[Rfam]
RNA sequence: GGGACAACGACGCAGACCCCUGGGCGGGAGCGGGGGACCCACGUACCACGCCGUGCCCCACGGCUCGGGGUGAAGCCGCCCAGCGCGGCCGGGCCACUCUCCGGUCCGAACCCGACAGCUCACUUCGCAGGCGUGCGGAGAGGGACA
Numbered sequence: 001g002g003g004a005c006a007a008c009g010a011c012g013c014a015g016a017c018c019c020c021u022g023g024g025c026g027g028g029a030g031c032g033g034g035g036g037a038c039c040c041a042c043g044u045a046c047c048a049c050g051c052c053g054u055g056c057c058c059c060a061c062g063g064c065u066c067g068g069g070g071u072g073a074a075g076c077c078g079c080c081c082a083g084c085g086c087g088g089c090c091g092g093g094c095c096a097c098u099c100u101c102c103g104g105u106c107c108g109a110a111c112c113c114g115a116c117a118g119c120u121c122a123c124u125u126c127g128c129a130g131g132c133g134u135g136c137g138g139a140g141a142g143g144g145a146c147a
Base pairs, nucleotide, nucleotide: 011133012132013131019028020027030128031127032126033125034124035123040067068113069112070111076088077087078086079085091107092106093105094104
RNA: c-di-AMP riboswitch aptamer (ydaO/yuaA leader)
Organism: Kitasatospora sp. MMS16-BH015